[Rfam]
RNA sequence: AAAAACACCCAUUACAGGGGUAGUACCCCAACCUGGAGCCACCUUCCCAUACUCAGAAUUU
Numbered sequence: 001a002a003a004a005a006c007a008c009c010c011a012u013u014a015c016a017g018g019g020g021u022a023g024u025a026c027c028c029c030a031a032c033c034u035g036g037a038g039c040c041a042c043c044u045u046c047c048c049a050u051a052c053u054c055a056g057a058a059u060u061u
Base pairs, nucleotide, nucleotide: 017045018044019043020042021041023039024038026036027035
Dot-bracket structure: ................(((((.((.((.......)).)).)))))................